[Rfam]
RNA sequence: CGCGCUUCCCCGGGGGACCGCGCGUGCGGUUGAGAGGCGGCAAACCGGCCGCGACCCGUCGAACCUGAUCCGGCUGACACCGGCGUAGGGAGCGGGUAGCGCAGGACA
Numbered sequence: 001c002g003c004g005c006u007u008c009c010c011c012g013g014g015g016g017a018c019c020g021c022g023c024g025u026g027c028g029g030u031u032g033a034g035a036g037g038c039g040g041c042a043a044a045c046c047g048g049c050c051g052c053g054a055c056c057c058g059u060c061g062a063a064c065c066u067g068a069u070c071c072g073g074c075u076g077a078c079a080c081c082g083g084c085g086u087a088g089g090g091a092g093c094g095g096g097u098a099g100c101g102c103a104g105g106a107c108a
Stems, first nucleotide, its partner, number of pairs: 006096003010092001011058004017030005037052005064089004070083004
A member of the RNA family "TPP riboswitch aptamer (THI element)" from Allosphingosinicella flava, 108 nucleotides long. The base pairs follow the family's consensus structure, which is taken from published work. Taxonomically the source falls in Allosphingosinicella (Bacteria, Pseudomonadati, Pseudomonadota, Sphingomonadales). Rfam links the family to the GO term thiamine pyrophosphate binding. Rfam describes the family as follows. Vitamin B(1) in its active form thiamin pyrophosphate (TPP) is an essential coenzyme that is synthesised by coupling of pyrimidine and thiazole moieties in bacteria. The match comes from Rfam's covariance-model search (61 bits).